Rfam assigns this 248-nucleotide RNA sequence from Calothrix sp. PCC 7507 to the family "Group I catalytic intron".
A search with the family's covariance model found it, with a score of 84 bits.
Taxonomically the source falls in Calothrix (Bacteria, Bacillati, Cyanobacteriota, Calotrichaceae).
A reference for the family is Cech (1990), "Self-splicing of group I introns", Annu Rev Biochem.
From the family's description: Group I catalytic introns are large self-splicing ribozymes.
Rfam links the family to the GO term Group I intron splicing.

[Rfam]
RNA sequence: CUACGGACUUAGAUAACUGAGCCUUGCUAGAGAAAUCUUUCAAGUGUAAGCUCUCAAACUCAGGGAAACCUAAAUCUGAUUACAGACAUGGCAAUCCUGAGCCAAGCCCAAAAAUUGAAGAUUUAAGAUUGUGUUGACAAUCGAAAAUCCCAAAUUAUGGGAAGGUGCAGAGACCCGACGGGAGCUACCCUAACGUUAAGUCGAGGGUAAAGGGAGAGUCCAAUUCUUAAAGCCGAUAGUAAUUAAAG
Numbered sequence: 001c002u003a004c005g006g007a008c009u010u011a012g013a014u015a016a017c018u019g020a021g022c023c024u025u026g027c028u029a030g031a032g033a034a035a036u037c038u039u040u041c042a043a044g045u046g047u048a049a050g051c052u053c054u055c056a057a058a059c060u061c062a063g064g065g066a067a068a069c070c071u072a073a074a075u076c077u078g079a080u081u082a083c084a085g086a087c088a089u090g091g092c093a094a095u096c097c098u099g100a101g102c103c104a105a106g107c108c109c110a111a112a113a114a115u116u117g118a119a120g121a122u123u124u125a126a127g128a129u130u131g132u133g134u135u136g137a138c139a140a141u142c143g144a145a146a147a148u149c150c151c152a153a154a155u156u157a158u159g160g161g162a163a164g165g166u167g168c169a170g171a172g173a174c175c176c177g178a179c180g181g182g183a184g185c186u187a188c189c190c191u192a193a194c195g196u197u198a199a200g201u202c203g204a205g206g207g208u209a210a211a212g213g214g215a216g217a218g219u220c221c222a223a224u225u226c227u228u229a230a231a232g233c234c235g236a237u238a239g240u241a242a243u244u245a246a247a248g
Stems, first nucleotide, its partner, number of pairs: 005024002008021005029038002049186005055180001060100006069091002101166002107160002113156004170221001172220003176216001188207004227246004